[Rfam]
RNA sequence: GGCACUUAUAUGUGUUUUUCUCUUACUUCUGUGGACUAAAACCUAAAUGAACAGGUGCAAAACAUAAAUCCACUUUGGCAACCCAGAAAUCGUUGUUUGGUAUGAUUUUUGAUACAUUAAGGAAAGAAUACU
Numbered sequence: 001g002g003c004a005c006u007u008a009u010a011u012g013u014g015u016u017u018u019u020c021u022c023u024u025a026c027u028u029c030u031g032u033g034g035a036c037u038a039a040a041a042c043c044u045a046a047a048u049g050a051a052c053a054g055g056u057g058c059a060a061a062a063c064a065u066a067a068a069u070c071c072a073c074u075u076u077g078g079c080a081a082c083c084c085a086g087a088a089a090u091c092g093u094u095g096u097u098u099g100g101u102a103u104g105a106u107u108u109u110u111g112a113u114a115c116a117u118u119a120a121g122g123a124a125a126g127a128a129u130a131c132u
Stems, first nucleotide, its partner, number of pairs: 002058006009051001011049001014042005021035001026033001068129002071126001074123003084111010
Small nucleolar RNA SNORA40: a 132-nucleotide RNA from Octodon degus. Rfam links the family to the GO terms nucleolus and RNA processing. A reference for the family is Ofengand and Bakin (1997), "Mapping to nucleotide resolution of pseudouridine residues in large subunit ribosomal RNAs from representative eukaryotes, prokaryotes, archaebacteria, mitochondria and chloroplasts", J Mol Biol. The snoRNA ACA 40 belongs to the H/ACA family of snoRNAs and guides the pseudouridylation of 28S rRNA subunit at position U4565.